[Rfam]
RNA sequence: AUCAAAAUGGUAAGGAUUGAUAAUGAAUAAAAACAAUUAGUACGAGCUAAAUCGACGUUAUUGUUGUUGAUUUCAUUUGCGAUCCUGACAACCUAUUGAAUUUUAUUUGUGUUAUUUUUGUUGCGUAUUCCAAGGUGUAUUACCACUUUCAAGCUAUUAGUGCGGACGGGUAUUUAUCCCGUC
Numbered sequence: 001a002u003c004a005a006a007a008u009g010g011u012a013a014g015g016a017u018u019g020a021u022a023a024u025g026a027a028u029a030a031a032a033a034c035a036a037u038u039a040g041u042a043c044g045a046g047c048u049a050a051a052u053c054g055a056c057g058u059u060a061u062u063g064u065u066g067u068u069g070a071u072u073u074c075a076u077u078u079g080c081g082a083u084c085c086u087g088a089c090a091a092c093c094u095a096u097u098g099a100a101u102u103u104u105a106u107u108u109g110u111g112u113u114a115u116u117u118u119u120g121u122u123g124c125g126u127a128u129u130c131c132a133a134g135g136u137g138u139a140u141u142a143c144c145a146c147u148u149u150c151a152a153g154c155u156a157u158u159a160g161u162g163c164g165g166a167c168g169g170g171u172a173u174u175u176a177u178c179c180c181g182u183c
Stems, first nucleotide, its partner, number of pairs: 001115002004112001006110001008091001010089001013086004018081002022077006029068002032065006042058003125158001127155001129153001132149006165183006
Dot-bracket structure: ((.(.(.(.(..((((.((..((((((.((.((((((....(((...........))).)))))).))...))))))..)).))))..).)..................).).)).........(.(.(..((((((......))))))...).)..)......((((((.......))))))
A member of the RNA family "Nitrogen stress-induced RNA 8" from Trichormus variabilis, 183 nucleotides long. The family's consensus secondary structure was predicted with RNAalifold. It is annotated as a small RNA. Its family is annotated with heterocyst differentiation in the Gene Ontology. The match comes from Rfam's covariance-model search (62 bits). The literature on the family includes a 2016 paper in Front Microbiol by Brenes-Alvarez et al., "Identification of Conserved and Potentially Regulatory Small RNAs in Heterocystous Cyanobacteria".